[Rfam]
RNA sequence: UAGUCUACUUAGAUCAAGUCUCCAUCUUGUAGUAUUAGAUCCUCACUUAAAUGUGCAAAACCUUCAAUUUUUACAAGCCUUACUGCAUUAGGUUGCCUUUUAACCAAUCAAGUUGACUAGGCUAUGUUAAGAAA
Numbered sequence: 001u002a003g004u005c006u007a008c009u010u011a012g013a014u015c016a017a018g019u020c021u022c023c024a025u026c027u028u029g030u031a032g033u034a035u036u037a038g039a040u041c042c043u044c045a046c047u048u049a050a051a052u053g054u055g056c057a058a059a060a061c062c063u064u065c066a067a068u069u070u071u072u073a074c075a076a077g078c079c080u081u082a083c084u085g086c087a088u089u090a091g092g093u094u095g096c097c098u099u100u101u102a103a104c105c106a107a108u109c110a111a112g113u114u115g116a117c118u119a120g121g122c123u124a125u126g127u128u129a130a131g132a133a134a
Stems, first nucleotide, its partner, number of pairs: 004132003009126001012123001014121002018117002023112001025110001027107003
RNA: MIR480 microRNA precursor family
Organism: Salix purpurea